[Rfam]
RNA: Small nucleolar RNA Z103
Organism: Ricinus communis
RNA sequence: AUAGAAGUGAUGAUUAUUUCCCCAGAUGAUCGACGUUGAACAAACUGAGCAUUUUUAUUUCUCUUUUUCUUUAUUAGAAGAGAAUUUAAGCCAGGAAACUAAUCCAU
Numbered sequence: 001a002u003a004g005a006a007g008u009g010a011u012g013a014u015u016a017u018u019u020c021c022c023c024a025g026a027u028g029a030u031c032g033a034c035g036u037u038g039a040a041c042a043a044a045c046u047g048a049g050c051a052u053u054u055u056u057a058u059u060u061c062u063c064u065u066u067u068u069c070u071u072u073a074u075u076a077g078a079a080g081a082g083a084a085u086u087u088a089a090g091c092c093a094g095g096a097a098a099c100u101a102a103u104c105c106a107u
Stems, first nucleotide, its partner, number of pairs: 001107002004104002
Dot-bracket structure: ((.((.................................................................................................)).))